[Rfam]
RNA sequence: CGAGAAUUGAAUACGGAACCUCAUAUAUUUCUUGGGAUAUGGCCAAUGAAGUCUCUACCCGGCACCGUAAAUGCUGGACUAUGGGGGAAGAUGAGUCAUUG
Number, nucleotide and partner (000 for none) at each position: 001c000002g000003a000004g000005a000006a000007u000008u000009g000010a000011a000012u000013a000014c000015g000016g000017a000018a000019c086020c085021u084022c083023a082024u081025a080026u000027a000028u000029u050030u049031c048032u046033u045034g044035g043036g000037a000038u000039a000040u000041g000042g000043c035044c034045a033046a032047u000048g031049a030050a029051g000052u000053c000054u000055c000056u000057a000058c000059c077060c076061g075062g074063c073064a072065c000066c000067g000068u000069a000070a000071a000072u064073g063074c062075u061076g060077g059078a000079c000080u025081a024082u023083g022084g021085g020086g019087g000088a000089a000090g000091a000092u000093g000094a000095g000096u000097c000098a000099u000100u000101g000
The family of this 101-nucleotide RNA from Ornithinibacillus caprae is "Purine riboswitch aptamer". Taxonomically the source falls in Ornithinibacillus (Bacteria, Bacillota, Caryophanales, Bacillaceae). Pairs were carried over by alignment from the consensus structure, which is taken from published work. A reference for the family is Mandal et al. (2003), "Riboswitches Control Fundamental Biochemical Pathways in Bacillus subtilis and Other Bacteria", Cell.